[Rfam]
RNA sequence: UUGCAUAUGGUGUAUCCAUGUCAUCUCCUGCCCAUGAGGUGCUUAUCUAAUUAUUGUAUGCAAUAUUAUCAUGGAGUAAUCAGGGCCGCAAGUCUUAAAGAACUAGACUUCAUGGUAGUAUAAAACUCUUACACAU
Numbered sequence: 001u002u003g004c005a006u007a008u009g010g011u012g013u014a015u016c017c018a019u020g021u022c023a024u025c026u027c028c029u030g031c032c033c034a035u036g037a038g039g040u041g042c043u044u045a046u047c048u049a050a051u052u053a054u055u056g057u058a059u060g061c062a063a064u065a066u067u068a069u070c071a072u073g074g075a076g077u078a079a080u081c082a083g084g085g086c087c088g089c090a091a092g093u094c095u096u097a098a099a100g101a102a103c104u105a106g107a108c109u110u111c112a113u114g115g116u117a118g119u120a121u122a123a124a125a126c127u128c129u130u131a132c133a134c135a136u
Base pairs, nucleotide, nucleotide: 003061004060005059006058007057008056018043022039024037025036073129074128075127076126085116086115090110091109092108093107094106095105